[Rfam]
RNA sequence: GCCCCCUUAGCUCAUUUGGUAGAGCAAUUGAUUUGUAAUCAAUAGGUGAUCUGUUCGAAUCAGAUAGGGGGCA
Number, nucleotide and partner (000 for none) at each position: 001g072002c071003c070004c069005c068006c067007u066008u000009a000010g025011c024012u023013c022014a000015u000016u000017u000018g000019g000020u000021a000022g013023a012024g011025c010026a000027a043028u042029u041030g040031a039032u000033u000034u000035g000036u000037a000038a000039u031040c030041a029042a028043u027044a000045g000046g000047u000048g000049a065050u064051c063052u062053g061054u000055u000056c000057g000058a000059a000060u000061c053062a052063g051064a050065u049066a007067g006068g005069g004070g003071g002072c001073a000